[Rfam]
RNA sequence: UCUGUGAAUUAGGUAGUUUCAUGUUGUUGGGCUCUUCGUUUCAAACACAACAACACCAAACUACCCGAUUUACUCC
Number, nucleotide and partner (000 for none) at each position: 001u000002c000003u000004g073005u072006g071007a070008a069009u068010u067011a000012g065013g064014u063015a062016g061017u060018u059019u058020c000021a000022u055023g054024u053025u052026g051027u050028u049029g048030g000031g046032c000033u000034c000035u000036u000037c000038g000039u000040u000041u000042c000043a000044a000045a000046c031047a000048c029049a028050a027051c026052a025053a024054c023055a022056c000057c000058a019059a018060a017061c016062u015063a014064c013065c012066c000067g010068a009069u008070u007071u006072a005073c004074u000075c000076c000
mir-196 microRNA precursor family: a 76-nucleotide sequence from Myiagra hebetior. A search with the family's covariance model found it, with a score of 76 bits.